[Rfam]
RNA sequence: GAGGCCCAUCUGCGGCUGGGUGCAGAAUGCUUGCCUCGUUGCUGGGGCAGCAAAGCAAGCAUUCCGCCAGGCCGCUCACGCUGCCCGC
Numbered sequence: 001g002a003g004g005c006c007c008a009u010c011u012g013c014g015g016c017u018g019g020g021u022g023c024a025g026a027a028u029g030c031u032u033g034c035c036u037c038g039u040u041g042c043u044g045g046g047g048c049a050g051c052a053a054a055g056c057a058a059g060c061a062u063u064c065c066g067c068c069a070g071g072c073c074g075c076u077c078a079c080g081c082u083g084c085c086c087g088c
Stems, first nucleotide, its partner, number of pairs: 003085003012075006020068001022067002025064010038051005
RNA: mir-9195 microRNA precursor family